Shown here is a 64-nucleotide sequence, a member of the family "Streptococcus sRNA SpF59 (ldcC RNA)".
[Rfam]
RNA sequence: CGACUGCUCAAAGCACAUAUCAGCCAAGAGCCGAGGCCAUACGGACAGCCGAGUCGAAUGCCGA
Numbered sequence: 001c002g003a004c005u006g007c008u009c010a011a012a013g014c015a016c017a018u019a020u021c022a023g024c025c026a027a028g029a030g031c032c033g034a035g036g037c038c039a040u041a042c043g044g045a046c047a048g049c050c051g052a053g054u055c056g057a058a059u060g061c062c063g064a
Stems, first nucleotide, its partner, number of pairs: 001056005006031004

On this family, see Mann et al., PLoS Pathog 2012: "Control of virulence by small RNAs in Streptococcus pneumoniae". Rfam's curators put it in the seed alignment. The base pairs follow the family's consensus structure, which was predicted with mfold.